[Rfam]
RNA sequence: UGAACCUUUAAAAUCAGUCCAGUGAGACUGAGAAGGUGGCGGAUAAAAGGAACAGCAGGUAACGUAUGUUGACGUGAACCCUUUUGCCAUCUUUGGCAAAAGGGUUUUUUUA
Numbered sequence: 001u002g003a004a005c006c007u008u009u010a011a012a013a014u015c016a017g018u019c020c021a022g023u024g025a026g027a028c029u030g031a032g033a034a035g036g037u038g039g040c041g042g043a044u045a046a047a048a049g050g051a052a053c054a055g056c057a058g059g060u061a062a063c064g065u066a067u068g069u070u071g072a073c074g075u076g077a078a079c080c081c082u083u084u085u086g087c088c089a090u091c092u093u094u095g096g097c098a099a100a101a102g103g104g105u106u107u108u109u110u111u112a
Stems, first nucleotide, its partner, number of pairs: 004037006014031006051070004058063001076107014
RNA: PyrR binding site